[Rfam]
RNA sequence: CAGUCCUUUCGGGGUAGGGUGCAAUUCCCAACCGGCGGUGAUCAAGUGUUCAGGAGACGUCAAGUCAACUUUUGCUUUCCUGGCGCGAGUUAGUCCGUGACCCGGAUGGAAACCAACCGAUAGCAGUUUUUACUGCUUGAUUGGCUUCCAUACGGUGGACCCGGUGCAAUUCCGGGACCGACAGUAUAGUCUGGAUGGGAGAAGGAGACG
Numbered sequence: 001c002a003g004u005c006c007u008u009u010c011g012g013g014g015u016a017g018g019g020u021g022c023a024a025u026u027c028c029c030a031a032c033c034g035g036c037g038g039u040g041a042u043c044a045a046g047u048g049u050u051c052a053g054g055a056g057a058c059g060u061c062a063a064g065u066c067a068a069c070u071u072u073u074g075c076u077u078u079c080c081u082g083g084c085g086c087g088a089g090u091u092a093g094u095c096c097g098u099g100a101c102c103c104g105g106a107u108g109g110a111a112a113c114c115a116a117c118c119g120a121u122a123g124c125a126g127u128u129u130u131u132a133c134u135g136c137u138u139g140a141u142u143g144g145c146u147u148c149c150a151u152a153c154g155g156u157g158g159a160c161c162c163g164g165u166g167c168a169a170u171u172c173c174g175g176g177a178c179c180g181a182c183a184g185u186a187u188a189g190u191c192u193g194g195a196u197g198g199g200a201g202a203a204g205g206a207g208a209c210g
Stems, first nucleotide, its partner, number of pairs: 004207001006205005017029003031190002033180002035098004102155002160176005182193003
Rfam assigns this 210-nucleotide sequence from a Paenibacillaceae bacterium to the family "FMN riboswitch aptamer (RFN element)". A reference for the family is Vitreschak et al. (2002), "Regulation of riboflavin biosynthesis and transport genes in bacteria by transcriptional and translational attenuation", Nucleic Acids Res.